[Rfam]
RNA: Group II catalytic intron D1-D4-4
Organism: Rhodoferax sediminis
RNA sequence: CAGCGGGUGCGAAUCCCGCCCGGCAACUGUCGCCCCAGCCGGUAGCAAUCGGAGUAAUCGUGGAGGUAACGAAGCGUUUGAAGCCCUCGGUGUAGAGGAUCCUUCAAGGGACUUAACGAUCAUGCAGGCCGUAAGGCGA
Numbered sequence: 001c002a003g004c005g006g007g008u009g010c011g012a013a014u015c016c017c018g019c020c021c022g023g024c025a026a027c028u029g030u031c032g033c034c035c036c037a038g039c040c041g042g043u044a045g046c047a048a049u050c051g052g053a054g055u056a057a058u059c060g061u062g063g064a065g066g067u068a069a070c071g072a073a074g075c076g077u078u079u080g081a082a083g084c085c086c087u088c089g090g091u092g093u094a095g096a097g098g099a100u101c102c103u104u105c106a107a108g109g110g111a112c113u114u115a116a117c118g119a120u121c122a123u124g125c126a127g128g129c130c131g132u133a134a135g136g137c138g139a
Base pairs, nucleotide, nucleotide: 020042021041022040023039024038050089051088052087054085055080056079057078059076060075065070097113098112100110101109102108116132117131118130